This 71-nucleotide sequence from Sulfitobacter sabulilitoris belongs to the Rfam family "L2-Alphaproteobacteria ribosomal protein leader". The source organism's lineage runs through Bacteria, Pseudomonadati, Pseudomonadota, Rhodobacterales and Sulfitobacter.
RNA sequence: GGGGACCUUCGGGGCCCUAUAACCACAGACGUCGCCUGCGGCGUCUCACAUAGCAAAACGGAAGACAGAAA
Numbered sequence: 001g002g003g004g005a006c007c008u009u010c011g012g013g014g015c016c017c018u019a020u021a022a023c024c025a026c027a028g029a030c031g032u033c034g035c036c037u038g039c040g041g042c043g044u045c046u047c048a049c050a051u052a053g054c055a056a057a058a059c060g061g062a063a064g065a066c067a068g069a070a071a
Stems, first nucleotide, its partner, number of pairs: 001018004006014003028045007